The family of this 136-nucleotide RNA sequence from Trichechus manatus is "Small nucleolar RNA SNORA75". From the family's description: U23 belongs to the H/ACA class of snoRNAs. snoRNAs bind a number of proteins (including dyskerin, Gar1p and Nop10p in the case of the H/ACA class) to form snoRNP complexes. This class are thought to guide the sites of modification of uridines to pseudouridines by forming direct base pairing interactions with substrate RNAs. Lineage of the source: Eukaryota > Chordata > Vertebrata > Euteleostomi > Trichechus manatus. The literature on the family includes a 2002 paper in Biochimie by Bachellerie et al., "The expanding snoRNA world". It scores 109 bits against the family's covariance model.

[Rfam]
RNA sequence: AUCUUCUCAAUGAGCUCCUUUCUGUCGAUCGGUGGCAGUCUGGAUUCGCACGAGAAGAAGAGCCAGUUCACAGAGCUCGCAUUCUUAGCUUACCUUCUGUCUUCACAGAAGUAGGCUUCUGUUCUGUGAGACAUUU
Numbered sequence: 001a002u003c004u005u006c007u008c009a010a011u012g013a014g015c016u017c018c019u020u021u022c023u024g025u026c027g028a029u030c031g032g033u034g035g036c037a038g039u040c041u042g043g044a045u046u047c048g049c050a051c052g053a054g055a056a057g058a059a060g061a062g063c064c065a066g067u068u069c070a071c072a073g074a075g076c077u078c079g080c081a082u083u084c085u086u087a088g089c090u091u092a093c094c095u096u097c098u099g100u101c102u103u104c105a106c107a108g109a110a111g112u113a114g115g116c117u118u119c120u121g122u123u124c125u126g127u128g129a130g131a132c133a134u135u136u
Stems, first nucleotide, its partner, number of pairs: 003057006014049002016044003022038005068129006094111006